Record summary
The record is a 64-nucleotide RNA sequence, which matches "S15-Flavobacteria ribosomal protein leader" in Rfam. The sequence is in the family's curated seed alignment. The literature on the family includes a 2020 paper in BMC Microbiol by Eckert and Weinberg, "Discovery of 20 novel ribosomal leader candidates in bacteria and archaea". By type it is a cis-regulatory leader.
RNA sequence: UAUCUUUGCGCCCUCAUUGAACGUCAAUGAGAUACAUAAAAAUCAUUAAUACAAUAUUGGAAUG
Numbered sequence: 001u002a003u004c005u006u007u008g009c010g011c012c013c014u015c016a017u018u019g020a021a022c023g024u025c026a027a028u029g030a031g032a033u034a035c036a037u038a039a040a041a042a043u044c045a046u047u048a049a050u051a052c053a054a055u056a057u058u059g060g061a062a063u064g
Base pairs, nucleotide, nucleotide: 014030015029016028017027018026019025